[Rfam]
Nucleotides: 069
Stems, first nucleotide, its partner, number of pairs: 002047001004045005021034005
Number, partner (000 for none) and nucleotide at each position: 001000c002047a003000c004045c005044c006043c007042a008041a009000g010000g011000a012000g013000c014000g015000c016000u017000g018000c019000a020000g021034c022033g023032a024031u025030c026000g027000c028000a029000c030025g031024a032023u033022c034021g035000u036000c037000a038000g039000g040000c041008u042007u043006g044005g045004g046000a047002u048000g049000g050000a051000c052000c053000a054000a055000c056000c057000g058000c059000g060000c061000u062000c063000a064000c065000c066000c067000g068000u069000a